Shown here is a 57-nucleotide sequence from Actinotalea bogoriensis, a member of the family "msiK RNA". It scores 54 bits against the family's covariance model. The base pairs follow the family's consensus structure, which is taken from published work.

RNA sequence: ACCUGACAGCUCUACAACGGAUCGUCCGGCACGUACCUGCCGGUGGAGGGAUGUACA
Number, nucleotide and partner (000 for none) at each position: 001a000002c000003c000004u000005g000006a000007c000008a000009g000010c050011u049012c046013u045014a044015c000016a000017a000018c000019g000020g000021a000022u000023c000024g000025u000026c043027c042028g041029g040030c039031a038032c000033g000034u000035a000036c000037c000038u031039g030040c029041c028042g027043g026044u014045g013046g012047a000048g000049g011050g010051a000052u000053g000054u000055a000056c000057a000